[Rfam]
RNA: sRNA regulator of biofilms A
RNA sequence: AUCAGAGGCCCCGAACAGAGGUCUCCGGAUCGCAACCUGCUUACCGUAGAUUCGAUUCGUGUUUUACCGCUCAAAAGGCAGUUCGACGAGAUUGCGACUGGAACGAAGUUGUCCUGAGGGACGGGGAAGCGUUUAACGUAACAGCACGAUUGGCAGCCACAGCCCACCGCGACACCCAUCGGUUUCCACGAACCAGCAAGUGCCAAAGCAGCUGACGCCAUCAACCUGUAC
Numbered sequence: 001a002u003c004a005g006a007g008g009c010c011c012c013g014a015a016c017a018g019a020g021g022u023c024u025c026c027g028g029a030u031c032g033c034a035a036c037c038u039g040c041u042u043a044c045c046g047u048a049g050a051u052u053c054g055a056u057u058c059g060u061g062u063u064u065u066a067c068c069g070c071u072c073a074a075a076a077g078g079c080a081g082u083u084c085g086a087c088g089a090g091a092u093u094g095c096g097a098c099u100g101g102a103a104c105g106a107a108g109u110u111g112u113c114c115u116g117a118g119g120g121a122c123g124g125g126g127a128a129g130c131g132u133u134u135a136a137c138g139u140a141a142c143a144g145c146a147c148g149a150u151u152g153g154c155a156g157c158c159a160c161a162g163c164c165c166a167c168c169g170c171g172a173c174a175c176c177c178a179u180c181g182g183u184u185u186c187c188a189c190g191a192a193c194c195a196g197c198a199a200g201u202g203c204c205a206a207a208g209c210a211g212c213u214g215a216c217g218c219c220a221u222c223a224a225c226c227u228g229u230a231c
Base pairs, nucleotide, nucleotide: 005025006024007023008022009021010020012018029056030055031054032053035051037049039047041046058152059151061150062149063148065146069079070078071077081137082136085133086132087131088130114126115125160169173202174201175200179196181194182193183192210221